[Rfam]
S4-Bacteroidia ribosomal protein leader: a 39-nucleotide RNA. It is annotated as a cis-regulatory leader. Pairs were carried over by alignment from the consensus structure, which is taken from published work. On this family, see Eckert and Weinberg, BMC Microbiol 2020: "Discovery of 20 novel ribosomal leader candidates in bacteria and archaea".
RNA sequence: GAUUACACAAAGACCUUAUCCUCUCUGUAGUCCCGGCUG
Numbered sequence: 001g002a003u004u005a006c007a008c009a010a011a012g013a014c015c016u017u018a019u020c021c022u023c024u025c026u027g028u029a030g031u032c033c034c035g036g037c038u039g
Base pairs, nucleotide, nucleotide: 001032002031003030004029005028006027007026